Overview
Rfam assigns this 315-nucleotide sequence from Letharia lupina to the family "A. fumigatus sRNA Afu_309". NCBI's taxonomy places the organism under Eukaryota, Opisthokonta, saccharomyceta, leotiomyceta, Letharia. The literature on the family includes a 2008 paper in Nucleic Acids Res by Jochl et al., "Small ncRNA transcriptome analysis from Aspergillus fumigatus suggests a novel mechanism for regulation of protein synthesis". It scores 94 bits against the family's covariance model.
[Rfam]
RNA sequence: CCUUCCAAAACAACAUGAGAUCUGUGUCAGCCUCCCGCAGCCCUCUUCCCCUCGGGGACCUGGUGUCGUUCGGUCGAGACUGACAACUCGACGUCAAGGAGCCGCUUUUCCUCCACGGAGGAAAACCCCAUAGCGUCAAUCUUCCGGUCGACAGGUCUCAAAUCGAAUCGGUUUUGCCUUUCUUCGAAGCCUGAGCUCCCGUCCGGUGAGCUCGGUGGAGGGGGGGGGCUUGCCGAGGACGUCAUAUUCCACCACGUUCCUGAUGGGGCGUCGUCUGAUGAGGGUUGGGUAAAACGUGCGUGUUUGUCAAUCCUU
Numbered sequence: 001c002c003u004u005c006c007a008a009a010a011c012a013a014c015a016u017g018a019g020a021u022c023u024g025u026g027u028c029a030g031c032c033u034c035c036c037g038c039a040g041c042c043c044u045c046u047u048c049c050c051c052u053c054g055g056g057g058a059c060c061u062g063g064u065g066u067c068g069u070u071c072g073g074u075c076g077a078g079a080c081u082g083a084c085a086a087c088u089c090g091a092c093g094u095c096a097a098g099g100a101g102c103c104g105c106u107u108u109u110c111c112u113c114c115a116c117g118g119a120g121g122a123a124a125a126c127c128c129c130a131u132a133g134c135g136u137c138a139a140u141c142u143u144c145c146g147g148u149c150g151a152c153a154g155g156u157c158u159c160a161a162a163u164c165g166a167a168u169c170g171g172u173u174u175u176g177c178c179u180u181u182c183u184u185c186g187a188a189g190c191c192u193g194a195g196c197u198c199c200c201g202u203c204c205g206g207u208g209a210g211c212u213c214g215g216u217g218g219a220g221g222g223g224g225g226g227g228g229c230u231u232g233c234c235g236a237g238g239a240c241g242u243c244a245u246a247u248u249c250c251a252c253c254a255c256g257u258u259c260c261u262g263a264u265g266g267g268g269c270g271u272c273g274u275c276u277g278a279u280g281a282g283g284g285u286u287g288g289g290u291a292a293a294a295c296g297u298g299c300g301u302g303u304u305u306g307u308c309a310a311u312c313c314u315u
Stems, first nucleotide, its partner, number of pairs: 018158008026084005032078003035073003039069001040067001043063002047058004092150002094147002098137002101134002170233001176229006189216003193213006199206002238308003241304001243302003252289002258284003266276004